Nucleotides: 127
Stems, first nucleotide, its partner, number of pairs: 005046005016034005022027001061120004065115003070109002075105006083097003
Number, partner (000 for none) and nucleotide at each position: 001000c002000c003000c004000g005046c006045c007044a008043c009042u010000a011000c012000g013000c014000c015000g016034g017033u018032c019031c020030g021000g022027c023000c024000g025000g026000u027022g028000a029000c030020c031019g032018g033017g034016c035000g036000g037000a038000g039000u040000c041000c042009a043008g044007u045006g046005g047000a048000g049000g050000c051000u052000c053000a054000g055000a056000g057000c058000g059000a060000c061120c062119c063118g064117g065115c066114u067113u068000c069000a070109g071108g072000a073000a074000a075105c076104g077103g078102g079101g080100c081000g082000g083097c084096u085095c086000c087000u088000c089000c090000c091000c092000g093000g094000u095085g096084g097083g098000c099000c100080g101079c102078c103077c104076c105075g106000u107000g108071c109070c110000g111000a112000a113067a114066a115065g116000c117064c118063c119062g120061g121000a122000a123000c124000a125000c126000a127000c
Annotation
Shown here is a 127-nucleotide RNA from Salarias fasciatus, a member of the family "Small nucleolar RNA SNORA65". A search with the family's covariance model found it, with a score of 75 bits. Rfam links the family to the GO terms nucleolus and RNA processing. The family has 14 seed sequences and 1,089 matches in Rfam 15.1. By type it is an H/ACA-box small nucleolar RNA. The organism belongs to Salarias, within Eukaryota. U65 belongs to the H/ACA class of snoRNAs which are thought to guide the sites of modification of uridines to pseudouridines.